[Rfam]
A member of the RNA family "c-di-AMP riboswitch aptamer (ydaO/yuaA leader)" from Paratissierella segnis, 124 nucleotides long.
RNA sequence: AUGAAUUGCAUGCUUAAUUCUUUUUAAGAAACGGGGGAACCAAUCAAUGGGGUUAAUCCAAUGAGGAGGGGUGCCCUUUACCCUAACCCGGCAGCUAACCUCGUAGGCAUUUAAAGGGGGUCAU
Numbered sequence: 001a002u003g004a005a006u007u008g009c010a011u012g013c014u015u016a017a018u019u020c021u022u023u024u025u026a027a028g029a030a031a032c033g034g035g036g037g038a039a040c041c042a043a044u045c046a047a048u049g050g051g052g053u054u055a056a057u058c059c060a061a062u063g064a065g066g067a068g069g070g071g072u073g074c075c076c077u078u079u080a081c082c083c084u085a086a087c088c089c090g091g092c093a094g095c096u097a098a099c100c101u102c103g104u105a106g107g108c109a110u111u112u113a114a115a116g117g118g119g120g121u122c123a124u
Stems, first nucleotide, its partner, number of pairs: 011109004018030003031104006041049002050089003058066002069083004
Source information: Its family is annotated with regulation of gene expression and cyclic-di-AMP binding in the Gene Ontology. Pairs were carried over by alignment from the consensus structure. The match comes from Rfam's covariance-model search (86 bits).